[Rfam]
RNA sequence: GGGUGUCUAGCGUAGCUAAGACAGGUAUUCGUUAUAGUCGGGCCGCUAUAA
Numbered sequence: 001g002g003g004u005g006u007c008u009a010g011c012g013u014a015g016c017u018a019a020g021a022c023a024g025g026u027a028u029u030c031g032u033u034a035u036a037g038u039c040g041g042g043c044c045g046c047u048a049u050a051a
Stems, first nucleotide, its partner, number of pairs: 005022004009017003032051007
Record summary: nhaA-I RNA: a 51-nucleotide sequence from Acinetobacter towneri. Rfam's curators put it in the seed alignment. The family's RNA type in Rfam is riboswitch. Pairs were carried over by alignment from the consensus structure, which is taken from published work. Acidobacteria, Alphaproteobacteria, Betaproteobacteria and Gammaproteobacteria, Verrucomicrobia, cand. division NC10.